Plastid-rps18 3UTR RNA: a 57-nucleotide RNA from Potamogeton perfoliatus. Rfam's curators write: Plastid rps18 is a non-coding RNA (ncRNA) present in plastids. It was identified as a short stem-loop motif in the 3 prime untranslate region (3UTR) of rps18 gene. On this family, see Richter et al., Plant Commun 2023: "Retrograde signaling in plants: A critical review focusing on the GUN pathway and beyond".
RNA sequence: CGCAAGUAUUUUACGAUUAAGAAGUAAUUGCCUCUUGUAUAGAUCAUGUAUUAAUCG
Numbered sequence: 001c002g003c004a005a006g007u008a009u010u011u012u013a014c015g016a017u018u019a020a021g022a023a024g025u026a027a028u029u030g031c032c033u034c035u036u037g038u039a040u041a042g043a044u045c046a047u048g049u050a051u052u053a054a055u056c057g
Stems, first nucleotide, its partner, number of pairs: 018037005024031002

The family's RNA type in Rfam is cis-regulatory element.